Source information:
The record is a 73-nucleotide RNA sequence from Sphingomonas sp. Root710, which matches "terC RNA" in Rfam. The family has 129 seed sequences and 1,112 matches in Rfam 15.1. The organism belongs to Sphingomonas, within Bacteria. Rfam classes the family as a cis-regulatory element.
[Rfam]
RNA sequence: ACUGCGGACCGGGCCCCUCUGGCGCGUCGCAUCGGCCCUAAGGGCAAUGCGCGCGUGAUGUCGGACCGCAUCG
Numbered sequence: 001a002c003u004g005c006g007g008a009c010c011g012g013g014c015c016c017c018u019c020u021g022g023c024g025c026g027u028c029g030c031a032u033c034g035g036c037c038c039u040a041a042g043g044g045c046a047a048u049g050c051g052c053g054c055g056u057g058a059u060g061u062c063g064g065a066c067c068g069c070a071u072c073g
Base pairs, nucleotide, nucleotide: 006067007066009064010063011062012061022056023055024054025053026052028051029050030049031048032047